RNA sequence: GGCGGGUCGAGAGAACGAAUACAACACCUUCGGGAAAUAAGUUCCGCCGACUUUGUACGGUGAUUGAAGCCCGCCGCCCUUUU
Numbered sequence: 001g002g003c004g005g006g007u008c009g010a011g012a013g014a015a016c017g018a019a020u021a022c023a024a025c026a027c028c029u030u031c032g033g034g035a036a037a038u039a040a041g042u043u044c045c046g047c048c049g050a051c052u053u054u055g056u057a058c059g060g061u062g063a064u065u066g067a068a069g070c071c072c073g074c075c076g077c078c079c080u081u082u083u
Stems, first nucleotide, its partner, number of pairs: 001075007013044004018038001027034002045062005